[Rfam]
RNA: Sense overlapping transcript RNA 0042 (sot)
Organism: Halosegnis rubeus
RNA sequence: AAGUAUCUCCGAGUUCACCGAAUCUCUCGGUGAAUAGGAGUAACGGCUGGUUGGCACAGCCAUCGACGUACCUGUUCGAUUCAGAGAGCGGAUGCUUCGCACCGCGAGAACAGGCCACCUCGUAAACCACAAUAUCCUAACUGCGGUCGGGAAUCCUCGCCCUUCAGGGCGGGGA
Number, nucleotide and partner (000 for none) at each position: 001a000002a000003g044004u043005a000006u000007c040008u039009c038010c037011g000012a000013g035014u034015u033016c032017a031018c030019c029020g028021a027022a000023u000024c000025u000026c000027u021028c020029g019030g018031u017032g016033a015034a014035u013036a000037g010038g009039a008040g007041u000042a000043a004044c003045g061046g060047c059048u058049g057050g000051u000052u000053g000054g000055c000056a000057c049058a048059g047060c046061c045062a000063u000064c122065g121066a120067c000068g118069u117070a000071c114072c113073u112074g111075u110076u109077c108078g000079a000080u000081u000082c000083a000084g000085a000086g000087a000088g000089c000090g103091g102092a000093u101094g100095c099096u000097u000098c000099g095100c094101a093102c091103c090104g000105c000106g000107a000108g077109a076110a075111c074112a073113g072114g071115c000116c000117a069118c068119c000120u066121c065122g064123u000124a000125a000126a000127c000128c000129a000130c000131a000132a000133u000134a000135u152136c151137c150138u149139a000140a147141c146142u000143g000144c000145g000146g141147u140148c000149g138150g137151g136152a135153a000154u175155c174156c173157u172158c171159g170160c169161c168162c167163u000164u000165c000166a000167g162168g161169g160170c159171g158172g157173g156174g155175a154